MIR2619 microRNA precursor family: a 177-nucleotide sequence from Medicago truncatula. Gene Ontology terms of the family: miRNA-mediated post-transcriptional gene silencing and RISC complex.
[Rfam]
RNA sequence: AAACAGCCCCUAUGCAUUGGAUCUUUGGCAGUUUUGGCUCCCAAUACCACUUUUGACUUAGUCUUCGCUGACGUGGCACCCAUAUCUCUUAAGUGAGGUGCCACGUCAGUGAAGACUAAGUCAAAAGUGGCAUUGGGGGCCAAAACUGCCAAAGAUCCAAUACAUAGGGAACUGUUU
Numbered sequence: 001a002a003a004c005a006g007c008c009c010c011u012a013u014g015c016a017u018u019g020g021a022u023c024u025u026u027g028g029c030a031g032u033u034u035u036g037g038c039u040c041c042c043a044a045u046a047c048c049a050c051u052u053u054u055g056a057c058u059u060a061g062u063c064u065u066c067g068c069u070g071a072c073g074u075g076g077c078a079c080c081c082a083u084a085u086c087u088c089u090u091a092a093g094u095g096a097g098g099u100g101c102c103a104c105g106u107c108a109g110u111g112a113a114g115a116c117u118a119a120g121u122c123a124a125a126a127g128u129g130g131c132a133u134u135g136g137g138g139g140c141c142a143a144a145a146c147u148g149c150c151a152a153a154g155a156u157c158c159a160a161u162a163c164a165u166a167g168g169g170a171a172c173u174g175u176u177u
Stems, first nucleotide, its partner, number of pairs: 001177002004174003011166004016161029071106002074103007